[Rfam]
RNA: Editing element of GABA-3 exon 9
Organism: Copsychus sechellarum
RNA sequence: AAGGUGUCGUAUGCCACCGCCAUGGACUGGUUCAUAGCUGUGUGUUUUGCCUUU
Numbered sequence: 001a002a003g004g005u006g007u008c009g010u011a012u013g014c015c016a017c018c019g020c021c022a023u024g025g026a027c028u029g030g031u032u033c034a035u036a037g038c039u040g041u042g043u044g045u046u047u048u049g050c051c052u053u054u
Stems, first nucleotide, its partner, number of pairs: 001054003006051001008049001011046001013045002015042003019038002022035005
Dot-bracket structure: (((..(.(..(.(((((.((.(((((....))))).)).))).)))..).))))